MIR2617 microRNA precursor family: an 88-nucleotide RNA from Medicago truncatula. Taxonomically the source falls in Medicago (Eukaryota, fabids, Fabales, Hologalegina). The base pairs follow the family's consensus structure, which was predicted with RNAalifold. The family has 3 seed sequences and 1,174 matches in Rfam 15.1. A search with the family's covariance model found it, with a score of 47 bits. Gene Ontology terms of the family: miRNA-mediated post-transcriptional gene silencing and RISC complex.
[Rfam]
RNA sequence: AUGUGAUGUGACGUGCCCUUGAGGUUUUACUCUGAUAUUGAAUUAUUAUUAUUUAAUUAAUUUUGGGAAAACGGGGUGUUACAUAAAU
Numbered sequence: 001a002u003g004u005g006a007u008g009u010g011a012c013g014u015g016c017c018c019u020u021g022a023g024g025u026u027u028u029a030c031u032c033u034g035a036u037a038u039u040g041a042a043u044u045a046u047u048a049u050u051a052u053u054u055a056a057u058u059a060a061u062u063u064u065g066g067g068a069a070a071a072c073g074g075g076g077u078g079u080u081a082c083a084u085a086a087a088u
Stems, first nucleotide, its partner, number of pairs: 004086001006084009016075003019071002